Notes
The family of this 80-nucleotide sequence from Trifolium medium is "MIR5269 microRNA precursor family". It scores 62 bits against the family's covariance model. Gene Ontology terms of the family: RISC complex and miRNA-mediated post-transcriptional gene silencing.
RNA sequence: UUGGGUGAAAUAAAUGUGGGUCGCACAUUUUGAAAAUGGGCCCCACAUAAAUUGAUGAGAUCCACAUUGAUUUCACCCAA
Numbered sequence: 001u002u003g004g005g006u007g008a009a010a011u012a013a014a015u016g017u018g019g020g021u022c023g024c025a026c027a028u029u030u031u032g033a034a035a036a037u038g039g040g041c042c043c044c045a046c047a048u049a050a051a052u053u054g055a056u057g058a059g060a061u062c063c064a065c066a067u068u069g070a071u072u073u074c075a076c077c078c079a080a
Base pairs, nucleotide, nucleotide: 001080002079003078004077005076006075007074008073009072010071011070013068014067015066016065017064018063024057025056026054027053029051030050031049032048
Dot-bracket structure: (((((((((((.((((((.....((((.((((...............)))).)).)).....)))))).)))))))))))